[Rfam]
RNA sequence: AUAGCCAGAAGAGGCGCGUCGUCCAGGGUAGUGUGCUUGAGGAGCCAGUCCGCAGAGAGCACAGGAGGGGGAACAACGCCGAGGUGGUAGAGCGUCUGGCCGCGCUUGCCAUCGGCUACAGGGGCUGAAUCCCCUGGGCUGUCACCAGAGACGUUCGCAGUCGUGCGUCUCGCAAGGUGGAGCGCUUCUGGGUGU
Numbered sequence: 001a002u003a004g005c006c007a008g009a010a011g012a013g014g015c016g017c018g019u020c021g022u023c024c025a026g027g028g029u030a031g032u033g034u035g036c037u038u039g040a041g042g043a044g045c046c047a048g049u050c051c052g053c054a055g056a057g058a059g060c061a062c063a064g065g066a067g068g069g070g071g072a073a074c075a076a077c078g079c080c081g082a083g084g085u086g087g088u089a090g091a092g093c094g095u096c097u098g099g100c101c102g103c104g105c106u107u108g109c110c111a112u113c114g115g116c117u118a119c120a121g122g123g124g125c126u127g128a129a130u131c132c133c134c135u136g137g138g139c140u141g142u143c144a145c146c147a148g149a150g151a152c153g154u155u156c157g158c159a160g161u162c163g164u165g166c167g168u169c170u171c172g173c174a175a176g177g178u179g180g181a182g183c184g185c186u187u188c189u190g191g192g193u194g195u
Stems, first nucleotide, its partner, number of pairs: 006190006016079004021074002024071001032063007083113006090107005114140004119136006142180005
RNA: Lysine riboswitch aptamer